Small Cajal body specific RNA 15: a 126-nucleotide sequence from Erinaceus europaeus.

[Rfam]
RNA sequence: CUGGAGACUAAGGAAGUAGAGUCCUUGAAAUCAAGCUGACUCUGCCCUUAGCCUCCUAUGUGACAAGGUAGAUAGAACAGGUCUUGGUGCGAGAUAAAUUCAAGACCUACUUCUCUGCCAACAGCA
Numbered sequence: 001c002u003g004g005a006g007a008c009u010a011a012g013g014a015a016g017u018a019g020a021g022u023c024c025u026u027g028a029a030a031u032c033a034a035g036c037u038g039a040c041u042c043u044g045c046c047c048u049u050a051g052c053c054u055c056c057u058a059u060g061u062g063a064c065a066a067g068g069u070a071g072a073u074a075g076a077a078c079a080g081g082u083c084u085u086g087g088u089g090c091g092a093g094a095u096a097a098a099u100u101c102a103a104g105a106c107c108u109a110c111u112u113c114u115c116u117g118c119c120a121a122c123a124g125c126a
Stems, first nucleotide, its partner, number of pairs: 003056004008051004017044007024035004067119006074112001079108008

It is annotated as a small Cajal body RNA. It is one of the family's seed sequences. Its Rfam clan is "SCARNA4 clan". Taxonomically the source falls in Erinaceus (Eukaryota, Opisthokonta, Eumetazoa, Eulipotyphla). Rfam links the family to the GO terms RNA processing, Cajal body and nucleolus. scaRNAs are a specific class of small nuclear RNAs which localise to the Cajal bodies and guide the modification of RNA polymerase II transcribed spliceosomal RNAs U1, U2, U4, U5 and U12. ACA45 belongs to the H/ACA box class of guide RNAs as it has the predicted hairpin-hinge-hairpin-tail structure, the conserved H/ACA-box motifs and is found associated with GAR1. ACA45 is predicted to guide the pseudouridylation of residue U37 of the U2 spliceosomal snRNA.